Shown here is a 101-nucleotide RNA from Aotus nancymaae, a member of the family "mir-4743 microRNA precursor family".
Taxonomically the source falls in Aotus (Eukaryota, Opisthokonta, Bilateria, Haplorrhini).
Rfam links the family to the GO terms RISC complex and miRNA-mediated post-transcriptional gene silencing.
The match comes from Rfam's covariance-model search (90 bits).
Pairs were carried over by alignment from the consensus structure, which was predicted with RNAalifold.
[Rfam]
Nucleotides: 101
Base pairs, nucleotide, nucleotide: 003098004097005096006095007094008090011087013085014084015083016082019081020080021079022078023077024076027073028072029071030070031069032068033067034066035065036064037063038062040059041056042055043054045052046051
Number, partner (000 for none) and nucleotide at each position: 001000u002000g003098u004097c005096c006095c007094u008090c009000c010000u011087c012000u013085c014084c015083u016082g017000c018000u019081g020080g021079c022078c023077a024076g025000c026000u027073g028072g029071g030070a031069c032068a033067g034066g035065a036064a037063g038062c039000a040059u041056g042055a043054a044000u045052g046051a047000g048000c049000c050000a051046u052045c053000c054043u055042u056041c057000c058000a059040a060000c061000c062038g063037c064036u065035u066034u067033c068032u069031g070030u071029c072028u073027u074000u075000u076024c077023u078022g079021g080020u081019c082016c083015a084014g085013g086000u087011g088000u089000a090008g091000c092000a093000a094007a095006g096005g097004g098003a099000a100000g101000c